Shown here is a 199-nucleotide sequence from Streptomyces sp. ICBB 8177, a member of the family "Streptomyces RNA 1601".
The organism belongs to Streptomyces, within Bacteria.
The base pairs follow the family's consensus structure.
Rfam describes the family as follows. Identified by deep sequencing of transcriptome at the end of exponential growth phase. Appears longer on northern blot than sequencing transcript. Streptomyces specific.
It is annotated as a small RNA.

RNA sequence: AUCGACCGGCCGGACACUCCUGUGCCCGGCCCGCAAGUGGAGCUCCAACUCCCACCUGACCGGCCCCCGGGCCGGCGGGUCCCGGUCAGACGGUGCGGUGUCGACGACGCCGUGGCCGUCCGAUGCGCCCCGCGGAAUAAACGCGGCGGUGCUCCCGGUUGUGAGGAGCCCCGCCUGUGUCCCGUACGGGGCGUUUUUG
Dot-bracket structure: ...((((((..((............))(((((.((.((((((......)).)))).)).((((((....)))))).))))))))))).(((((.((((((.......))))))..)))))......(((((((((......((((((((.(((((.........))))).))))).)))..)))..)))))).......